RNA sequence: CAAACGGCUCUUUUCAGAGCCACCAAUUACAUAGAAAGCAUAGUUU
Numbered sequence: 001c002a003a004a005c006g007g008c009u010c011u012u013u014u015c016a017g018a019g020c021c022a023c024c025a026a027u028u029a030c031a032u033a034g035a036a037a038g039c040a041u042a043g044u045u046u
Base pairs, nucleotide, nucleotide: 006021007020008019009018010017011016
The family of this 46-nucleotide RNA from Etheostoma spectabile is "Histone 3' UTR stem-loop".
It is annotated as a cis-regulatory element.
Taxonomically the source falls in Oligocephalus (Eukaryota, Eumetazoa, Teleostomi, Euteleosteomorpha).
A search with the family's covariance model found it, with a score of 39 bits.